[Rfam]
RNA sequence: CCCAUCCUUCGCUCAGUGGUCAGUGUAGGUCCUGUUCGGCCGCCAGCAGCUACAUCUGGCUACUGGGUCUCUGAUGGCUGUC
Numbered sequence: 001c002c003c004a005u006c007c008u009u010c011g012c013u014c015a016g017u018g019g020u021c022a023g024u025g026u027a028g029g030u031c032c033u034g035u036u037c038g039g040c041c042g043c044c045a046g047c048a049g050c051u052a053c054a055u056c057u058g059g060c061u062a063c064u065g066g067g068u069c070u071c072u073g074a075u076g077g078c079u080g081u082c
Base pairs, nucleotide, nucleotide: 013066014065015064016063017062018061020059021058022057023055024054025053026052027051028050032049033048034047035046

Shown here is an 82-nucleotide RNA from Cyprinus carpio, a member of the family "mir-221 microRNA precursor family". The base pairs follow the family's consensus structure, which was predicted with RNAalifold. Rfam links the family to the GO terms RISC complex and miRNA-mediated post-transcriptional gene silencing. On this family, see Yao et al., J Virol 2008: "MicroRNA profile of Marek's disease virus-transformed T-cell line MSB-1: predominance of virus-encoded microRNAs".